[Rfam]
RNA sequence: UUGGGGGGACAGGGCUCGGAGCCCCUCCCUGAGCCCAGGGUAACCCUUAAAGUGGAGGGGGA
Numbered sequence: 001u002u003g004g005g006g007g008g009a010c011a012g013g014g015c016u017c018g019g020a021g022c023c024c025c026u027c028c029c030u031g032a033g034c035c036c037a038g039g040g041u042a043a044c045c046c047u048u049a050a051a052g053u054g055g056a057g058g059g060g061g062a
Base pairs, nucleotide, nucleotide: 008041010039012036013035014034015033016031018029019028022060023059024058025057026056027055